[Rfam]
RNA: RNA anti-toxin A
Organism: Ligilactobacillus apodemi
RNA sequence: UAAUGAUAAAAGAAAAGAGAUAGUGCUACCAACACCAUCUCCUGUGGAAACCGUUAAAGACGGUGACUUUUAGACAGUUUAUUAAAUA
Numbered sequence: 001u002a003a004u005g006a007u008a009a010a011a012g013a014a015a016a017g018a019g020a021u022a023g024u025g026c027u028a029c030c031a032a033c034a035c036c037a038u039c040u041c042c043u044g045u046g047g048a049a050a051c052c053g054u055u056a057a058a059g060a061c062g063g064u065g066a067c068u069u070u071u072a073g074a075c076a077g078u079u080u081a082u083u084a085a086a087u088a
Stems, first nucleotide, its partner, number of pairs: 023035003050064006